TPP riboswitch aptamer (THI element): a 110-nucleotide RNA from Gorillibacterium sp. The family's consensus secondary structure is taken from published work. A search with the family's covariance model found it, with a score of 57 bits. The source organism's lineage runs through Bacteria, Bacillota, Caryophanales, Paenibacillaceae and Gorillibacterium.

[Rfam]
RNA sequence: AAUAGCAUACACGGGGGCUUGAUGAAGUCAGGCUGAGAUCGCGACCUAUUGUCGCAGACCGUUAAUCUGAUCUGGAUAAUGCCAGCGUAGAGAGUCGGGUGCAAUCCCAC
Numbered sequence: 001a002a003u004a005g006c007a008u009a010c011a012c013g014g015g016g017g018c019u020u021g022a023u024g025a026a027g028u029c030a031g032g033c034u035g036a037g038a039u040c041g042c043g044a045c046c047u048a049u050u051g052u053c054g055c056a057g058a059c060c061g062u063u064a065a066u067c068u069g070a071u072c073u074g075g076a077u078a079a080u081g082c083c084a085g086c087g088u089a090g091a092g093a094g095u096c097g098g099g100u101g102c103a104a105u106c107c108c109a110c
Stems, first nucleotide, its partner, number of pairs: 006098001009095002011062004017033005041055004066091004072085004